[Rfam]
RNA sequence: AUAUCUGUUCAGGGAGAGGUGAAAUUCCUCACUGGCGGUAAGGGGCGCAAGCCCUAAGUCCGCGACCCGCGCAAGCGGCUGAUCUGGUGAGAAUCCAGGACCAACGGUUACAGUCCGGAUGGAAGAACGGAAAC
Numbered sequence: 001a002u003a004u005c006u007g008u009u010c011a012g013g014g015a016g017a018g019g020u021g022a023a024a025u026u027c028c029u030c031a032c033u034g035g036c037g038g039u040a041a042g043g044g045g046c047g048c049a050a051g052c053c054c055u056a057a058g059u060c061c062g063c064g065a066c067c068c069g070c071g072c073a074a075g076c077g078g079c080u081g082a083u084c085u086g087g088u089g090a091g092a093a094u095c096c097a098g099g100a101c102c103a104a105c106g107g108u109u110a111c112a113g114u115c116c117g118g119a120u121g122g123a124a125g126a127a128c129g130g131a132a133a134c
Stems, first nucleotide, its partner, number of pairs: 004131007017029003031114002033103002035063004058101002067078002083099005105117003